[Rfam]
Notes:
Shown here is a 164-nucleotide RNA from Geomicrobium halophilum, a member of the family "M-box riboswitch aptamer (ykoK leader)". The pairing is the family consensus, mapped onto this sequence.
RNA sequence: AUAUAAUCUCGUUAGGUGAGGCUCCUGUAUGGAGACAUGCUGCUGCCCAAAAAUGUCCAAAGACGCCAAUGGGUGAACAGAAAUCAUCGAGCUAAGGUGAUUUUUAAUGCAGCUGGCAACGUCCUAUGCCAUGCAGUGCUAAAGCUCUACGACGGAGGCGCAAA
Number, nucleotide and partner (000 for none) at each position: 001a000002u000003a000004u000005a000006a000007u158008c157009u156010c155011g150012u149013u095014a000015g146016g145017u144018g000019a000020g140021g139022c138023u000024c000025c136026u135027g134028u133029a132030u131031g130032g129033a000034g000035a000036c000037a000038u000039g113040c112041u111042g110043c109044u000045g074046c073047c072048c071049a070050a000051a000052a000053a000054u065055g064056u063057c062058c000059a000060a000061a000062g057063a056064c055065g054066c000067c000068a000069a000070u049071g048072g047073g046074u045075g000076a000077a000078c000079a000080g104081a103082a102083a101084u000085c000086a098087u097088c096089g000090a000091g000092c000093u000094a000095a013096g088097g087098u086099g000100a000101u083102u082103u081104u080105u000106a000107a000108u000109g043110c042111a041112g040113c039114u000115g124116g123117c000118a000119a000120c000121g000122u000123c116124c115125u000126a000127u000128g000129c032130c031131a030132u029133g028134c027135a026136g025137u000138g022139c021140u020141a000142a000143a000144g017145c016146u015147c000148u000149a012150c011151g000152a000153c000154g000155g010156a009157g008158g007159c000160g000161c000162a000163a000164a000
From the family's description: M-box riboswitch, also know as ykoK leader is described as a metaloregulatory RNA that sense divalent metals and function as a genetic control element of genes related to divalent metal transport in bacteria. It was first reported upstream of the B.subtilis ykoK gene and genes with related functions in other bacteria. On this family, see Barrick et al., Proc Natl Acad Sci U S A 2004: "New RNA motifs suggest an expanded scope for riboswitches in bacterial genetic control". It scores 140 bits against the family's covariance model.